Rfam assigns this 177-nucleotide sequence from Staphylococcus massiliensis to the family "Lysine riboswitch aptamer". It scores 108 bits against the family's covariance model.
[Rfam]
RNA sequence: UGAUAUUGAUGAGGCGCAUCAAUCAUCAGUAAUAGCCAGAUGACCACCUGCUAGUGGCUGGUUAUGAAAGGGUGAGAUGCCGAAAUAAAUGAUGUAGCAGAUUUCAUUUAUUGGAUUCUAUGGUUAAGAGCUGAGAGUCUGUCAUUAUUUGAAAGAUAAUGGAGUGCAUCACUUGUA
Numbered sequence: 001u002g003a004u005a006u007u008g009a010u011g012a013g014g015c016g017c018a019u020c021a022a023u024c025a026u027c028a029g030u031a032a033u034a035g036c037c038a039g040a041u042g043a044c045c046a047c048c049u050g051c052u053a054g055u056g057g058c059u060g061g062u063u064a065u066g067a068a069a070g071g072g073u074g075a076g077a078u079g080c081c082g083a084a085a086u087a088a089a090u091g092a093u094g095u096a097g098c099a100g101a102u103u104u105c106a107u108u109u110a111u112u113g114g115a116u117u118c119u120a121u122g123g124u125u126a127a128g129a130g131c132u133g134a135g136a137g138u139c140u141g142u143c144a145u146u147a148u149u150u151g152a153a154a155g156a157u158a159a160u161g162g163a164g165u166g167c168a169u170c171a172c173u174u175g176u177a
Stems, first nucleotide, its partner, number of pairs: 007171005016080005024072001032065008084112009094102002113140007121133004142162007
Dot-bracket structure: ......(((((....(((((...(.......((((((((..................))))))))......)...)))))...(((((((((.((.....)).)))))))))(((((((.((((.....))))))))))).(((((((.......)))))))....)))))......